[Rfam]
RNA: mir-317 microRNA precursor family
Organism: Operophtera brumata
RNA sequence: GCUACCGAACGACCGGGUACCACACUGUGCUCUCUCGAGAUAUUAGUGCGGAGUGAACACAGCUGGUGGUAUCUCAGUUGUUCCCUAGUU
Numbered sequence: 001g002c003u004a005c006c007g008a009a010c011g012a013c014c015g016g017g018u019a020c021c022a023c024a025c026u027g028u029g030c031u032c033u034c035u036c037g038a039g040a041u042a043u044u045a046g047u048g049c050g051g052a053g054u055g056a057a058c059a060c061a062g063c064u065g066g067u068g069g070u071a072u073c074u075c076a077g078u079u080g081u082u083c084c085c086u087a088g089u090u
Stems, first nucleotide, its partner, number of pairs: 008081001011078001015075001016073002019070002022067002025062003029058001031056002